RNA sequence: UGGGUAGCUCCGACUGAGCUGCCAGACCCCCGACCCGGCAGCUCGGUCGGGGCGCCUA
Numbered sequence: 001u002g003g004g005u006a007g008c009u010c011c012g013a014c015u016g017a018g019c020u021g022c023c024a025g026a027c028c029c030c031c032g033a034c035c036c037g038g039c040a041g042c043u044c045g046g047u048c049g050g051g052g053c054g055c056c057u058a
Stems, first nucleotide, its partner, number of pairs: 002057004007053008016044008

Rfam assigns this 58-nucleotide sequence from Gordonia insulae to the family "F6 TB sRNA". It is annotated as a small RNA. A search with the family's covariance model found it, with a score of 53 bits. The family's consensus secondary structure is taken from published work. NCBI's taxonomy places the organism under Bacteria, Bacillati, Actinomycetes, Gordoniaceae, Gordonia.